[Rfam]
RNA sequence: CUCAUACAAAAAGCGCCAGGACUGACAUGAGGUCAGUUGACGAGGAGAGGGCUAAUCGAUAAUCGGCGGGUUCCCUCCGGCUGCGUGUGACAGCCGUAAGCUUUUGUAAAAAACAGUAAGGUGACUUAGUGUACAAAAACAAAAGCCGCACACAC
Numbered sequence: 001c002u003c004a005u006a007c008a009a010a011a012a013g014c015g016c017c018a019g020g021a022c023u024g025a026c027a028u029g030a031g032g033u034c035a036g037u038u039g040a041c042g043a044g045g046a047g048a049g050g051g052c053u054a055a056u057c058g059a060u061a062a063u064c065g066g067c068g069g070g071u072u073c074c075c076u077c078c079g080g081c082u083g084c085g086u087g088u089g090a091c092a093g094c095c096g097u098a099a100g101c102u103u104u105u106g107u108a109a110a111a112a113a114c115a116g117u118a119a120g121g122u123g124a125c126u127u128a129g130u131g132u133a134c135a136a137a138a139a140c141a142a143a144a145g146c147c148g149c150a151c152a153c154a155c
Stems, first nucleotide, its partner, number of pairs: 020038007047077005056066004078096006101145007114131002117128004
Dot-bracket structure: ...................(((((((.....)))))))........(((((....((((...))))......)))))((((((.......))))))....(((((((......((.((((....)))).)).......)))))))..........
The record is a 155-nucleotide sequence from Shouchella oshimensis, which matches "glmS glucosamine-6-phosphate activated ribozyme aptamer" in Rfam. Its family is annotated with catalytic activity and regulation of gene expression in the Gene Ontology. The family's RNA type in Rfam is riboswitch. Lineage of the source: Bacteria > Bacilli > Caryophanales > Bacillaceae > Shouchella oshimensis.